The family of this 103-nucleotide RNA sequence from Providencia heimbachae is "Tryptophan operon leader". Lineage of the source: Bacteria > Pseudomonadota > Gammaproteobacteria > Providencia > Providencia heimbachae.
RNA sequence: AAUCGUUGGUGGCGUGACUUUCCAAAUUGGGCGGAAGCCGCACACGCAUAAUUUCAUCAUGCCUCAGUGCCAAACCCGCUCCUAAAAAGGCGGGUUUUUUUAU
Numbered sequence: 001a002a003u004c005g006u007u008g009g010u011g012g013c014g015u016g017a018c019u020u021u022c023c024a025a026a027u028u029g030g031g032c033g034g035a036a037g038c039c040g041c042a043c044a045c046g047c048a049u050a051a052u053u054u055c056a057u058c059a060u061g062c063c064u065c066a067g068u069g070c071c072a073a074a075c076c077c078g079c080u081c082c083u084a085a086a087a088a089g090g091c092g093g094g095u096u097u098u099u100u101u102a103u
Stems, first nucleotide, its partner, number of pairs: 009043003015036001018033001020031003073096007080088001
From the family's description: At least 6 amino acid operons are known to be regulated by attenuation.